RNA sequence: AAUUGCAAAGAUAAAAACGCAACGUACCAUCAGGUACCAGAGCCGGUAGGUAGCCCGGCCGUACCAUCCCUUGGGAUGGUGUCAGUAACCUUCCCCUCCGGGUCGUCCAUUCUUUGUUCAUUACAU
Numbered sequence: 001a002a003u004u005g006c007a008a009a010g011a012u013a014a015a016a017a018c019g020c021a022a023c024g025u026a027c028c029a030u031c032a033g034g035u036a037c038c039a040g041a042g043c044c045g046g047u048a049g050g051u052a053g054c055c056c057g058g059c060c061g062u063a064c065c066a067u068c069c070c071u072u073g074g075g076a077u078g079g080u081g082u083c084a085g086u087a088a089c090c091u092u093c094c095c096c097u098c099c100g101g102g103u104c105g106u107c108c109a110u111u112c113u114u115u116g117u118u119c120a121u122u123a124c125a126u
Base pairs, nucleotide, nucleotide: 005117006116007115008114009113010112011111042059043058044057045056046055061082062081063080064079065078066077067076068075069074093102094101095100
RNA: azaaromatic riboswitch aptamer (yjdF RNA)